Shown here is a 71-nucleotide RNA sequence from Rhodoferax ferrireducens, a member of the family "SAH (S-adenosyl-L-homocysteine) riboswitch aptamer".

[Rfam]
RNA sequence: UCUUCCAAGGAGCGUUGCAGUCGGCCACAUGGCCGGUCAGGCUUGGAUGACCCCAACGACGCUCACCUGAU
Dot-bracket structure: .(.(((((............((((((....))))))......))))).)......................
Taxonomically the source falls in Rhodoferax ferrireducens (Bacteria, Pseudomonadota, Betaproteobacteria, Burkholderiales). A reference for the family is Wang et al. (2008), "Riboswitches that sense S-adenosylhomocysteine and activate genes involved in coenzyme recycling", Mol Cell. Rfam's curators put it in the seed alignment. Pairs were carried over by alignment from the consensus structure, which is taken from published work.